[Rfam]
RNA sequence: GCGCUCACCAGGGCUCCGGUCAUCCUGUGGUCCUGACCUGUCCGUGAGCAAGAGACAGGACUGGUUUGGCGGUGCCCUGAGUGGUACGGGCACCACGGUUUUCAGUGCAAGC
Numbered sequence: 001g002c003g004c005u006c007a008c009c010a011g012g013g014c015u016c017c018g019g020u021c022a023u024c025c026u027g028u029g030g031u032c033c034u035g036a037c038c039u040g041u042c043c044g045u046g047a048g049c050a051a052g053a054g055a056c057a058g059g060a061c062u063g064g065u066u067u068g069g070c071g072g073u074g075c076c077c078u079g080a081g082u083g084g085u086a087c088g089g090g091c092a093c094c095a096c097g098g099u100u101u102u103c104a105g106u107g108c109a110a111g112c
Stems, first nucleotide, its partner, number of pairs: 003049006012042003018038004023030002058108001060106005066098003071094007
Rfam assigns this 112-nucleotide RNA sequence from Oryctolagus cuniculus to the family "Small Cajal body specific RNA 23". The literature on the family includes a 2002 paper in EMBO J by Darzacq et al., "Cajal body-specific small nuclear RNAs: a novel class of 2'-O-methylation and pseudouridylation guide RNAs". scaRNAs are a specific class of small nuclear RNAs which localise to the Cajal bodies and guide the modification of RNA polymerase II transcribed spliceosomal RNAs U1, U2, U4, U5 and U12. ACA11 belongs to the H/ACA box class of guide RNAs as it has the predicted hairpin-hinge-hairpin-tail structure,the conserved H/ACA-box motifs and is found associated with GAR1. H/ACA snRNAs are predicted to guide the modification of uridines to pseudouridines in substrate RNAs however, no target RNA has been identified for scaRNA ACA11. A search with the family's covariance model found it, with a score of 71 bits.